[Rfam]
RNA: Lysine riboswitch aptamer
Organism: Parolsenella catena
RNA sequence: UCCACUGAUAGAGGCGCGGGGAAGAGGAGGCGUGUGCGAGCCGGCAGGCGUCGAGUGCGCGCAGAGGCAACCCCGCCGAACCCGGCCGUCAGGCAUGACGCUCGGGUGGGCUUGCGGGAGACACCCGCGAGACUGUCUGCAGUGGCCGUUCGCGCGGCCCCAAAUCCCUGCAGGAGCGCUAUCGAUUGG
Numbered sequence: 001u002c003c004a005c006u007g008a009u010a011g012a013g014g015c016g017c018g019g020g021g022a023a024g025a026g027g028a029g030g031c032g033u034g035u036g037c038g039a040g041c042c043g044g045c046a047g048g049c050g051u052c053g054a055g056u057g058c059g060c061g062c063a064g065a066g067g068c069a070a071c072c073c074c075g076c077c078g079a080a081c082c083c084g085g086c087c088g089u090c091a092g093g094c095a096u097g098a099c100g101c102u103c104g105g106g107u108g109g110g111c112u113u114g115c116g117g118g119a120g121a122c123a124c125c126c127g128c129g130a131g132a133c134u135g136u137c138u139g140c141a142g143u144g145g146c147c148g149u150u151c152g153c154g155c156g157g158c159c160c161c162a163a164a165u166c167c168c169u170g171c172a173g174g175a176g177c178g179c180u181a182u183c184g185a186u187u188g189g
Stems, first nucleotide, its partner, number of pairs: 006184006016076006024068001030062008080107006087100005108134002111131008136174007